Description: A member of the RNA family "Small nucleolar RNA R160", 75 nucleotides long. By type it is a C/D-box small nucleolar RNA. Rfam describes the family as follows. snoR160 is a C/D box small nucleolar RNA, which acts as a methylation guide for 25S ribosomal RNA in plants. snoR160 has been alternatively named snoZ270 in rice. On this family, see Chen et al., Nucleic Acids Res 2003: "The high diversity of snoRNAs in plants: identification and comparative study of 120 snoRNA genes from Oryza sativa".
RNA sequence: AGCAAAAUGAGGAGGUUAUAUGAUCUGAAGUAUCUAAUGUUGAUAAUUCAAGGUCUUCAAAGUUCUCUGAUUGCU
Number, nucleotide and partner (000 for none) at each position: 001a075002g074003c073004a072005a071006a000007a000008u000009g000010a000011g000012g000013a000014g000015g000016u000017u000018a000019u000020a000021u000022g000023a000024u000025c000026u000027g000028a000029a000030g000031u000032a000033u000034c000035u000036a000037a000038u000039g000040u000041u000042g000043a000044u000045a000046a000047u000048u000049c000050a000051a000052g000053g000054u000055c000056u000057u000058c000059a000060a000061a000062g000063u000064u000065c000066u000067c000068u000069g000070a000071u005072u004073g003074c002075u001
It is one of the family's seed sequences.
Its family is annotated with RNA processing and nucleolus in the Gene Ontology.